A member of the RNA family "NiCo (Nickel/Cobalt) riboswitch aptamer" from Eubacterium aggregans, 101 nucleotides long. The base pairs follow the family's consensus structure, which is taken from published work. For this family Rfam cites "Bacterial riboswitches cooperatively bind Ni(2+) or Co(2+) ions and control expression of heavy metal transporters" (Furukawa et al., Mol Cell, 2015). The source organism's lineage runs through Bacteria, Bacillati, Clostridia, Eubacteriales and Eubacterium.

[Rfam]
RNA sequence: ACAGUACAAACUGAGCAGGCGAUGACCCCGUUUACCGGGUCAUGGGGCCGGGCCGCUACGGUGGCAGCAGCGUGUGACUUAUGGGCACCUGUGGGACAGUA
Numbered sequence: 001a002c003a004g005u006a007c008a009a010a011c012u013g014a015g016c017a018g019g020c021g022a023u024g025a026c027c028c029c030g031u032u033u034a035c036c037g038g039g040u041c042a043u044g045g046g047g048c049c050g051g052g053c054c055g056c057u058a059c060g061g062u063g064g065c066a067g068c069a070g071c072g073u074g075u076g077a078c079u080u081a082u083g084g085g086c087a088c089c090u091g092u093g094g095g096a097c098a099g100u101a
Base pairs, nucleotide, nucleotide: 010100011099012098013097016095018049019048020047022043023042024041025040026039027038052065053064054063055062056061067092068091069090070089